Background: msiK RNA: a 58-nucleotide sequence from Microbacterium sp. T32.
Nucleotides: 058
Base pairs, nucleotide, nucleotide: 009050010049012048013047014046015045027044028043029042030041031040032039
Number, partner (000 for none) and nucleotide at each position: 001000c002000g003000u004000u005000c006000a007000u008000u009050c010049c011000a012048u013047u014046c015045a016000c017000u018000a019000c020000g021000g022000a023000u024000c025000g026000u027044c028043c029042g030041g031040c032039a033000c034000g035000u036000a037000c038000c039032u040031g041030c042029c043028g044027g045015u046014g047013a048012a049010g050009g051000a052000g053000a054000a055000g056000a057000a058000g
Record summary
Rfam classes the family as a cis-regulatory element.